[Rfam]
Source information
Shown here is a 75-nucleotide RNA from Zea mays, a member of the family "Plastid-ycf2 5UTR RNA". Plastid ycf2 is a non-coding RNA (ncRNA) recognised in plastids. It was found in the prime untranslated region (5UTR) of ycf2 genes, it presents a tRNA-like motif which suggests it can be involved in mRNA maturation, particularly involved in defining the precise 5' end of the transcript. By type it is a cis-regulatory element. Rfam 15.1 lists 3,521 matches to the family in 417 species. The organism belongs to Zea, within Eukaryota. The family's consensus secondary structure was predicted with LocARNA.

RNA sequence: GUGCAUCUAGCAGGAAUUGAAUCCACAAAUCUACCACUUAUGAGCUGGGUGCUUUAACCAUUCAACCAUGGAUGC
Numbered sequence: 001g002u003g004c005a006u007c008u009a010g011c012a013g014g015a016a017u018u019g020a021a022u023c024c025a026c027a028a029a030u031c032u033a034c035c036a037c038u039u040a041u042g043a044g045c046u047g048g049g050u051g052c053u054u055u056a057a058c059c060a061u062u063c064a065a066c067c068a069u070g071g072a073u074g075c
Base pairs, nucleotide, nucleotide: 003075004074005073006072007071008070010026013023014022040069041068042067044066046064047063048062049061050060051059